RNA sequence: CUCUUAUCCAGAGAGGUGGAGGGAUGUGCCCUAUGAAGCCCGGCAACCGGCAAUCAUGACAGCCAUGAUUGAAAAGGUGCCAAUUCACACAGGAUUAUUAAGUCCUGGAAGAUGAGAG
Numbered sequence: 001c002u003c004u005u006a007u008c009c010a011g012a013g014a015g016g017u018g019g020a021g022g023g024a025u026g027u028g029c030c031c032u033a034u035g036a037a038g039c040c041c042g043g044c045a046a047c048c049g050g051c052a053a054u055c056a057u058g059a060c061a062g063c064c065a066u067g068a069u070u071g072a073a074a075a076g077g078u079g080c081c082a083a084u085u086c087a088c089a090c091a092g093g094a095u096u097a098u099u100a101a102g103u104c105c106u107g108g109a110a111g112a113u114g115a116g117a118g
Stems, first nucleotide, its partner, number of pairs: 001118008013041001015040003021031003025089004042081004047077002051071007085110001090107006
Rfam assigns this 118-nucleotide RNA sequence from Bacillus sp. FJAT-27916 to the family "SAM riboswitch aptamer (S box leader)". Taxonomically the source falls in Bacillus (Bacteria, Bacillati, Bacillota, Caryophanales). Rfam links the family to the GO term regulation of gene expression.